Overview
Rfam assigns this 101-nucleotide RNA sequence from Etheostoma spectabile to the family "Vault RNA". A reference for the family is Stadler et al. (2009), "Evolution of Vault RNAs", Mol Biol Evol. The family's consensus secondary structure is taken from published work.
[Rfam]
RNA sequence: AUAGAGGUUUAGCUCAGGGGUUACAUCGACUCGAGAGGGAGGCUCAGCACGCUAGCUCUCUGGGCCGCGGGUUCGAAUCCCGGGCGUUGUCCCCUGUCGUU
Numbered sequence: 001a002u003a004g005a006g007g008u009u010u011a012g013c014u015c016a017g018g019g020g021u022u023a024c025a026u027c028g029a030c031u032c033g034a035g036a037g038g039g040a041g042g043c044u045c046a047g048c049a050c051g052c053u054a055g056c057u058c059u060c061u062g063g064g065c066c067g068c069g070g071g072u073u074c075g076a077a078u079c080c081c082g083g084g085c086g087u088u089g090u091c092c093c094c095u096g097u098c099g100u101u
Base pairs, nucleotide, nucleotide: 002096003095004094006092007091012085013084014083015082017081018080019079020078026076027075028074029073